RNA: Small nucleolar RNA Z161/Z228
RNA sequence: AAACAAUAUGAUGAGUUUGUAUCACAACUUCUCACGACGGUUGACUGAGGCACCUAAAUGUUUAGUUUUUUAUAUUAUUCCAAUAUUUCUGUUGGUU
Numbered sequence: 001a002a003a004c005a006a007u008a009u010g011a012u013g014a015g016u017u018u019g020u021a022u023c024a025c026a027a028c029u030u031c032u033c034a035c036g037a038c039g040g041u042u043g044a045c046u047g048a049g050g051c052a053c054c055u056a057a058a059u060g061u062u063u064a065g066u067u068u069u070u071u072a073u074a075u076u077a078u079u080c081c082a083a084u085a086u087u088u089c090u091g092u093u094g095g096u097u
Stems, first nucleotide, its partner, number of pairs: 001097002004094001052061002
Dot-bracket structure: ((.(...............................................((......))................................).))